The record is a 125-nucleotide RNA from Otolemur garnettii, which matches "U4atac minor spliceosomal RNA" in Rfam. The family has 61 seed sequences and 1,648 matches in Rfam 15.1. For this family Rfam cites "Evolutionary conservation of minor U12-type spliceosome between plants and humans" (Lorkovic et al., RNA, 2005). Rfam describes the family as follows. U4atac is an essential component of the minor U12-type spliceosome complex which is required for removal of the rarer class of eukaryotic introns (AT-AC, U12-type). Its Rfam clan is "U4 clan". By type it is a spliceosomal small nuclear RNA. Pairs were carried over by alignment from the consensus structure, which is taken from published work.
Nucleotides: 125
Base pairs, nucleotide, nucleotide: 006017007016008015009014020059021058022057025054026053027052028051029050030049031048038044082111083110084109085108086107089103090102091101092100093099094098
Number, partner (000 for none) and nucleotide at each position: 001000a002000c003000c004000a005000u006017c007016c008015u009014u010000u011000u012000u013000g014009g015008g016007g017006g018000u019000u020059g021058u022057g023000c024000u025054a026053c027052u028051g029050u030049c031048c032000a033000c034000u035000g036000a037000g038044u039000g040000c041000a042000c043000a044038g045000a046000g047000a048031g049030g050029g051028c052027a053026g054025u055000c056000c057022u058021g059020c060000u061000a062000a063000c064000a065000c066000c067000u068000a069000c070000a071000g072000c073000a074000c075000a076000u077000g078000c079000u080000c081000c082111c083110a084109u085108c086107a087000a088000c089103u090102a091101g092100a093099g094098c095000u096000u097000g098094g099093c100092u101091u102090u103089g104000u105000a106000u107086u108085g109084g110083u111082g112000c113000a114000a115000u116000u117000u118000u119000u120000g121000g122000a123000a124000a125000a